Shown here is a 118-nucleotide sequence from Luteimonas gilva, a member of the family "Xanthomonadaceae sRNA Xoo5". The family's RNA type in Rfam is small RNA.

[Rfam]
RNA sequence: UGAAGACCCGACUCGCCGACUCGUACGCAAGCGCCGCCCGGAUGGCCUCGGGCAUGACCUCGCGCGCGCGCCGACCGGAAACCCAACCGCCAGCUGGGUAGCCGGAACUCGCCGUCAU
Numbered sequence: 001u002g003a004a005g006a007c008c009c010g011a012c013u014c015g016c017c018g019a020c021u022c023g024u025a026c027g028c029a030a031g032c033g034c035c036g037c038c039c040g041g042a043u044g045g046c047c048u049c050g051g052g053c054a055u056g057a058c059c060u061c062g063c064g065c066g067c068g069c070g071c072c073g074a075c076c077g078g079a080a081a082c083c084c085a086a087c088c089g090c091c092a093g094c095u096g097g098g099u100a101g102c103c104g105g106a107a108c109u110c111g112c113c114g115u116c117a118u
Stems, first nucleotide, its partner, number of pairs: 031112003036108001038105002040076002043073004052067002055064002077103002082098004